[Rfam]
RNA sequence: CGAGCGGGUCGUGACUGGCGUCUCGAGAUGGAUCAACCAUCGGGAAGCGACCCCGUCAUCAAGACGUCGUGCCGUGCGCCUGGGCUUCUGGA
Numbered sequence: 001c002g003a004g005c006g007g008g009u010c011g012u013g014a015c016u017g018g019c020g021u022c023u024c025g026a027g028a029u030g031g032a033u034c035a036a037c038c039a040u041c042g043g044g045a046a047g048c049g050a051c052c053c054c055g056u057c058a059u060c061a062a063g064a065c066g067u068c069g070u071g072c073c074g075u076g077c078g079c080c081u082g083g084g085c086u087u088c089u090g091g092a
Stems, first nucleotide, its partner, number of pairs: 003056001006053007015044002017080005028040004069087001071085003
The record is a 92-nucleotide RNA sequence from Kribbella sp. VKM Ac-2500, which matches "ZMP/ZTP riboswitch aptamer (pfl RNA motif)" in Rfam. For this family Rfam cites "Metal Ion-Mediated Nucleobase Recognition by the ZTP Riboswitch" (Trausch et al., Chem Biol, 2015). The base pairs follow the family's consensus structure, which is taken from published work.